RNA sequence: AAGUCAAUAUCGCUUAAUCCUAAUAAUAGGAGCGGGGGAACCAAUUAUAGAGUGUAAGAACUCUGGGGGUGAAUCAAACGAAACAACCGUUUGUAGGGCUACUUCUUAGUCCGAAUCCGACAGCUAACCUCGUCAGCGUUAGAGGAGUUGAUUA
Numbered sequence: 001a002a003g004u005c006a007a008u009a010u011c012g013c014u015u016a017a018u019c020c021u022a023a024u025a026a027u028a029g030g031a032g033c034g035g036g037g038g039a040a041c042c043a044a045u046u047a048u049a050g051a052g053u054g055u056a057a058g059a060a061c062u063c064u065g066g067g068g069g070u071g072a073a074u075c076a077a078a079c080g081a082a083a084c085a086a087c088c089g090u091u092u093g094u095a096g097g098g099c100u101a102c103u104u105c106u107u108a109g110u111c112c113g114a115a116u117c118c119g120a121c122a123g124c125u126a127a128c129c130u131c132g133u134c135a136g137c138g139u140u141a142g143a144g145g146a147g148u149u150g151a152u153u154a
Stems, first nucleotide, its partner, number of pairs: 011138004018031003032133006042066001067118003075093004096112004